[Rfam]
RNA sequence: AAUACUUGUUUCUAGGGUUCCGAUUUGAGUUCCGUCCUUACUUAAAUGCCUGGUCCAAGAGAAACAGCUAGCUGCUUUCAUACCUGUUUUAUACCGGUUGGCAGUGAGUGACACGGAGGGAUAAAAGCCCGGGAGAA
Numbered sequence: 001a002a003u004a005c006u007u008g009u010u011u012c013u014a015g016g017g018u019u020c021c022g023a024u025u026u027g028a029g030u031u032c033c034g035u036c037c038u039u040a041c042u043u044a045a046a047u048g049c050c051u052g053g054u055c056c057a058a059g060a061g062a063a064a065c066a067g068c069u070a071g072c073u074g075c076u077u078u079c080a081u082a083c084c085u086g087u088u089u090u091a092u093a094c095c096g097g098u099u100g101g102c103a104g105u106g107a108g109u110g111a112c113a114c115g116g117a118g119g120g121a122u123a124a125a126a127g128c129c130c131g132g133g134a135g136a137a
Stems, first nucleotide, its partner, number of pairs: 007066006015056002020053002022050001023047008067109003071105006112132001114135001118130003

A member of the RNA family "Guanidine-I riboswitch aptamer" from Acaryochloris marina, 137 nucleotides long.
Rfam's curators write: This family represents a conserved RNA structure found upstream of the ykkC and yxkD genes in Bacillus subtilis and related genes in other bacteria. The function of this family is unclear although it has been suggested that it may function to switch on efflux pumps and detoxification systems in response to harmful environmental molecules.
The literature on the family includes a 2017 paper in Mol Cell by Nelson et al., "Metabolism of Free Guanidine in Bacteria Is Regulated by a Widespread Riboswitch Class".